[Rfam]
Background: The family of this 131-nucleotide RNA from Microcebus murinus is "Small nucleolar RNA SNORA11". Rfam links the family to the GO terms nucleolus and RNA processing. NCBI's taxonomy places the organism under Eukaryota, Eumetazoa, Euteleostomi, Cheirogaleidae, Microcebus. On this family, see Gu et al., Nucleic Acids Res 2005: "A novel experimental approach for systematic identification of box H/ACA snoRNAs from eukaryotes". It scores 112 bits against the family's covariance model. The family's RNA type in Rfam is H/ACA-box small nucleolar RNA. U107 (SNORA11) is a member of the H/ACA class of snoRNAs that guide the sites of modification of uridines to pseudouridines. This snoRNA was identified by RT-PCR from blood cells and its expression confirmed by Northern blot analysis.
RNA sequence: GGGGUGUGCUCAGAGCUAGGGGGCCUGAAGAAUGGCUCUUCUGUUUACAAUACGCCCAACAGGAAUCUCGGGGACACUGUGAUAAGGGACACAAAAACCAGUGGCCUCCCUAUGAACAAAUGCCUACAUGU
Numbered sequence: 001g002g003g004g005u006g007u008g009c010u011c012a013g014a015g016c017u018a019g020g021g022g023g024c025c026u027g028a029a030g031a032a033u034g035g036c037u038c039u040u041c042u043g044u045u046u047a048c049a050a051u052a053c054g055c056c057c058a059a060c061a062g063g064a065a066u067c068u069c070g071g072g073g074a075c076a077c078u079g080u081g082a083u084a085a086g087g088g089a090c091a092c093a094a095a096a097a098c099c100a101g102u103g104g105c106c107u108c109c110c111u112a113u114g115a116a117c118a119a120a121u122g123c124c125u126a127c128a129u130g131u
Stems, first nucleotide, its partner, number of pairs: 002057007013046004018042005023036003071124002078118003083114002086107003090103003
Dot-bracket structure: .(((((((....((((.((((((((........))).)))))))))....))))))).............((.....(((..((.(((.(((........))).))).....)).)))....)).......